[Rfam]
RNA sequence: ACCCGUUGUUUGUAGAUGUUAUGGGGUUUGGCCGAGCUUAGCGUUGUUCAUUUUUUUACACAAUAGGCCUGUAAAAAAUUGAACACGCACUCCUGAACACCCUUCGACGCGAGGUUUUUUUCGGCUUUUCGUCCGGCGAAAAUGCCCUGAAAACGGCCUCAACGCCCCACAAGAGGGCGU
Number, nucleotide and partner (000 for none) at each position: 001a000002c000003c000004c000005g000006u000007u000008g000009u000010u000011u000012g000013u000014a000015g000016a000017u000018g000019u000020u000021a000022u000023g102024g101025g100026g000027u000028u097029u000030g000031g000032c000033c000034g092035a000036g090037c000038u000039u000040a000041g088042c087043g086044u085045u000046g084047u083048u082049c000050a000051u000052u078053u077054u076055u075056u074057u073058a072059c071060a000061c000062a000063a000064u000065a000066g000067g000068c000069c000070u000071g059072u058073a057074a056075a055076a054077a053078a052079u000080u000081g000082a048083a047084c046085a044086c043087g042088c041089a000090c036091u000092c034093c000094u000095g000096a000097a028098c000099a000100c025101c024102c023103u000104u000105c000106g000107a000108c000109g000110c000111g000112a000113g000114g000115u000116u000117u000118u000119u000120u000121u000122c000123g000124g000125c000126u000127u000128u000129u000130c000131g000132u000133c000134c000135g000136g000137c000138g000139a000140a000141a000142a000143u000144g000145c000146c000147c000148u000149g000150a000151a000152a000153a000154c000155g000156g000157c000158c000159u000160c000161a000162a180163c179164g178165c177166c000167c175168c000169a000170c000171a000172a000173g000174a000175g167176g000177g165178c164179g163180u162
This 180-nucleotide RNA sequence from Pseudomonas aeruginosa belongs to the Rfam family "Pseudomonas sRNA P1". Rfam classes the family as a non-coding RNA gene. The source organism's lineage runs through Bacteria, Pseudomonadota, Pseudomonadaceae, Pseudomonas and Pseudomonas aeruginosa. About the family: This small RNA (sRNA) was computationally identified in the genome of the opportunistic pathogen Pseudomonas aeruginosa and its expression verified by northern blot analysis. There appears to be two related copies of P1 sRNA in the P.aeruginosa PA01 genome and both copies appear to be located upstream of predicted glutamine synthetase genes. This sRNA appears to be conserved amongst several Pseudomonas species. A reference for the family is Livny et al. (2006), "Identification of 17 Pseudomonas aeruginosa sRNAs and prediction of sRNA-encoding genes in 10 diverse pathogens using the bioinformatic tool sRNAPredict2", Nucleic Acids Res.